[Rfam]
RNA sequence: UUCUUAUCCAGAGUGGCGGAGGGACUGGCCCUAUGAAGCCCGGCAACCAUCAGAUUCCAAAAAGAAUCUGGAAGGUGCCAAAUCCAACAAAACGGUUAACUGUUUUGAAAGAUGAGAG
Numbered sequence: 001u002u003c004u005u006a007u008c009c010a011g012a013g014u015g016g017c018g019g020a021g022g023g024a025c026u027g028g029c030c031c032u033a034u035g036a037a038g039c040c041c042g043g044c045a046a047c048c049a050u051c052a053g054a055u056u057c058c059a060a061a062a063a064g065a066a067u068c069u070g071g072a073a074g075g076u077g078c079c080a081a082a083u084c085c086a087a088c089a090a091a092a093c094g095g096u097u098a099a100c101u102g103u104u105u106u107g108a109a110a111g112a113u114g115a116g117a118g
Stems, first nucleotide, its partner, number of pairs: 001118008013041001015040003021031003026086003042079004047075002050071007083110001088107006

This 118-nucleotide sequence from Salipaludibacillus keqinensis belongs to the Rfam family "SAM riboswitch aptamer (S box leader)".
Gene Ontology term of the family: regulation of gene expression.
The SAM riboswitch is found upstream of a number of genes which code for proteins involved in methionine or cysteine biosynthesis in Gram-positive bacteria.
The source organism's lineage runs through Bacteria, Bacillota, Caryophanales, Bacillaceae and Salipaludibacillus.
On this family, see Grundy and Henkin, Mol Microbiol 1998: "The S box regulon: a new global transcription termination control system for methionine and cysteine biosynthesis genes in gram-positive bacteria".